[Rfam]
A member of the RNA family "Manganese Mn2+ riboswitch aptamer (yybP-ykoY)" from Pseudomonas matsuisoli, 172 nucleotides long. The organism belongs to Pseudomonas, within Bacteria. The family has 29 seed sequences and 1,126 matches in Rfam 15.1. A reference for the family is Argaman et al. (2001), "Novel small RNA-encoding genes in the intergenic regions of Escherichia coli", Curr Biol.
RNA sequence: CCUCUUUGGGGAGUAGCCUGCUGCGGACCCCGCUUGUUCCGUAGCGCGCGUGUCAACAUUCUUGGCAAAAAUUGCCAUGGCACGUGCACCAUUCGGUUGGCGAGACCAUCGACUUACCUGUGCCAGGGUCGGGCGCGCAGGUUUGUCGUGGACUCGGGCCCGGCCGGAUAAC
Numbered sequence: 001c002c003u004c005u006u007u008g009g010g011g012a013g014u015a016g017c018c019u020g021c022u023g024c025g026g027a028c029c030c031c032g033c034u035u036g037u038u039c040c041g042u043a044g045c046g047c048g049c050g051u052g053u054c055a056a057c058a059u060u061c062u063u064g065g066c067a068a069a070a071a072u073u074g075c076c077a078u079g080g081c082a083c084g085u086g087c088a089c090c091a092u093u094c095g096g097u098u099g100g101c102g103a104g105a106c107c108a109u110c111g112a113c114u115u116a117c118c119u120g121u122g123c124c125a126g127g128g129u130c131g132g133g134c135g136c137g138c139a140g141g142u143u144u145g146u147c148g149u150g151g152a153c154u155c156g157g158g159c160c161c162g163g164c165c166g167g168a169u170a171a172c
Stems, first nucleotide, its partner, number of pairs: 020045008046087010063077005092171002